[Rfam]
RNA sequence: CCGCUCGAGGGGCGCUGCAGCAGGACCGUACAUCCGAUUGGAAUCUCGCCCCGAUAGCGGCGGCGAAUUCGAUCCGCUGACGAACCUGUCAGGCUCGAACGGGGCGUUAACCAUACGCAUCAACGGCGCCCAUUCGCA
Numbered sequence: 001c002c003g004c005u006c007g008a009g010g011g012g013c014g015c016u017g018c019a020g021c022a023g024g025a026c027c028g029u030a031c032a033u034c035c036g037a038u039u040g041g042a043a044u045c046u047c048g049c050c051c052c053g054a055u056a057g058c059g060g061c062g063g064c065g066a067a068u069u070c071g072a073u074c075c076g077c078u079g080a081c082g083a084a085c086c087u088g089u090c091a092g093g094c095u096c097g098a099a100c101g102g103g104g105c106g107u108u109a110a111c112c113a114u115a116c117g118c119a120u121c122a123a124c125g126g127c128g129c130c131c132a133u134u135c136g137c138a
Stems, first nucleotide, its partner, number of pairs: 002101002005098004021088004
The family of this 138-nucleotide RNA sequence from Pseudomonas mangrovi is "SAH (S-adenosyl-L-homocysteine) riboswitch aptamer". For this family Rfam cites "Riboswitches that sense S-adenosylhomocysteine and activate genes involved in coenzyme recycling" (Wang et al., Mol Cell, 2008). Rfam links the family to the GO terms regulation of gene expression and S-adenosylhomocysteine metabolic process. The organism belongs to Pseudomonas, within Bacteria.